[Rfam]
RNA sequence: ACCCCCUGGCAAUGGGCAAAGAGACACCUUGGCGGUGGUGGUGCUCUUAUAUCAGCCUGGGGCAGAGCAGACGCGGUCCUUUGUUCAUCCUAGCUUGAUGCCUGGGUUGGUGGCCAGAGCUGUUUCAUGCCUAGGGCACAGAA
Numbered sequence: 001a002c003c004c005c006c007u008g009g010c011a012a013u014g015g016g017c018a019a020a021g022a023g024a025c026a027c028c029u030u031g032g033c034g035g036u037g038g039u040g041g042u043g044c045u046c047u048u049a050u051a052u053c054a055g056c057c058u059g060g061g062g063c064a065g066a067g068c069a070g071a072c073g074c075g076g077u078c079c080u081u082u083g084u085u086c087a088u089c090c091u092a093g094c095u096u097g098a099u100g101c102c103u104g105g106g107u108u109g110g111u112g113g114c115c116a117g118a119g120c121u122g123u124u125u126c127a128u129g130c131c132u133a134g135g136g137c138a139c140a141g142a143a
Stems, first nucleotide, its partner, number of pairs: 003062004008057001013054003019048003023042001025040004082138005097131001099129001103127003108122002111119001
Shown here is a 143-nucleotide RNA from Suricata suricatta, a member of the family "Small nucleolar RNA SNORA48". Rfam 15.1 lists 2,109 matches to the family in 150 species. The source organism's lineage runs through Eukaryota, Euteleostomi, Amniota, Boreoeutheria and Suricata. Rfam's curators write: The snoRNA ACA 48 has been identified to guide pseudouridylation of the residue U3797 in the 28S rRNA subunit. A search with the family's covariance model found it, with a score of 76 bits. The family's RNA type in Rfam is H/ACA-box small nucleolar RNA.